The family of this 58-nucleotide sequence from Virgisporangium aurantiacum is "msiK RNA". It scores 48 bits against the family's covariance model.
[Rfam]
RNA sequence: GGGGACCAACCUUUACUCGGAUCGUCCGGCACGUUCCUGCCGGUGAAGGGAUGUUCCA
Numbered sequence: 001g002g003g004g005a006c007c008a009a010c011c012u013u014u015a016c017u018c019g020g021a022u023c024g025u026c027c028g029g030c031a032c033g034u035u036c037c038u039g040c041c042g043g044u045g046a047a048g049g050g051a052u053g054u055u056c057c058a
Base pairs, nucleotide, nucleotide: 010049011048012047013046014045015044026043027042028041029040030039031038

Background:
Pairs were carried over by alignment from the consensus structure, which is taken from published work. By type it is a cis-regulatory element.